[Rfam]
RNA sequence: UAGCGGAUUGGUUGCUGCAAGCCAAGGGCGGUAGCGUA
Numbered sequence: 001u002a003g004c005g006g007a008u009u010g011g012u013u014g015c016u017g018c019a020a021g022c023c024a025a026g027g028g029c030g031g032u033a034g035c036g037u038a
Stems, first nucleotide, its partner, number of pairs: 008025005
RNA: JUMPstart RNA
Organism: Lonsdalea quercina